[Rfam]
RNA sequence: ACGAUGUUCCGCUGUAGUUAAUUGAGAACUAUAUGAACAUUCG
Numbered sequence: 001a002c003g004a005u006g007u008u009c010c011g012c013u014g015u016a017g018u019u020a021a022u023u024g025a026g027a028a029c030u031a032u033a034u035g036a037a038c039a040u041u042c043g
Base pairs, nucleotide, nucleotide: 003041004040005039006038007037008036009035013033014032015031016030017029018028